[Rfam]
RNA sequence: AGCGCAGGCCGCCUUAUCGCGCAUCAAUUCGUUGAUGGGAGGAAAGUCCGGACACCACAGGGAAGCAUAGCGGCUAACGGCCGUCGUCGUAUAGCUCGUGCUAUACGAUAGGACUAGUGCAACAGAAAGGAUGUACAGGUAAUGCUGUAGUGAAAUCGUGUAAACUCUAUGCGGUGAAAUACCACGUAAACUUACAUUCGAGGGUUCCCGCCCAACGUAAGAGGGUAGGUAGAUAGAACUAUUUGGCAACAAAUGGUCCAGAUAAAUGAUAAGGGCUCUUUAAUGUAAAUUGAAGAGAACAGAAUCCGGCUUACAGGCCUGCAUUUUUU
Numbered sequence: 001a002g003c004g005c006a007g008g009c010c011g012c013c014u015u016a017u018c019g020c021g022c023a024u025c026a027a028u029u030c031g032u033u034g035a036u037g038g039g040a041g042g043a044a045a046g047u048c049c050g051g052a053c054a055c056c057a058c059a060g061g062g063a064a065g066c067a068u069a070g071c072g073g074c075u076a077a078c079g080g081c082c083g084u085c086g087u088c089g090u091a092u093a094g095c096u097c098g099u100g101c102u103a104u105a106c107g108a109u110a111g112g113a114c115u116a117g118u119g120c121a122a123c124a125g126a127a128a129g130g131a132u133g134u135a136c137a138g139g140u141a142a143u144g145c146u147g148u149a150g151u152g153a154a155a156u157c158g159u160g161u162a163a164a165c166u167c168u169a170u171g172c173g174g175u176g177a178a179a180u181a182c183c184a185c186g187u188a189a190a191c192u193u194a195c196a197u198u199c200g201a202g203g204g205u206u207c208c209c210g211c212c213c214a215a216c217g218u219a220a221g222a223g224g225g226u227a228g229g230u231a232g233a234u235a236g237a238a239c240u241a242u243u244u245g246g247c248a249a250c251a252a253a254u255g256g257u258c259c260a261g262a263u264a265a266a267u268g269a270u271a272a273g274g275g276c277u278c279u280u281u282a283a284u285g286u287a288a289a290u291u292g293a294a295g296a297g298a299a300c301a302g303a304a305u306c307c308g309g310c311u312u313a314c315a316g317g318c319c320u321g322c323a324u325u326u327u328u329u
Stems, first nucleotide, its partner, number of pairs: 001325002004322007011314001012274007020039001022037006044312003048309005053176004060209004065172005070084005085111001086109010112167002117165002119161003180231004191221005202213004238257008

Record summary: Rfam assigns this 329-nucleotide RNA from Pukyongia salina to the family "Bacterial RNase P class A". Its family is annotated with tRNA processing, dimeric ribonuclease P complex and ribonuclease P activity in the Gene Ontology. It scores 189 bits against the family's covariance model.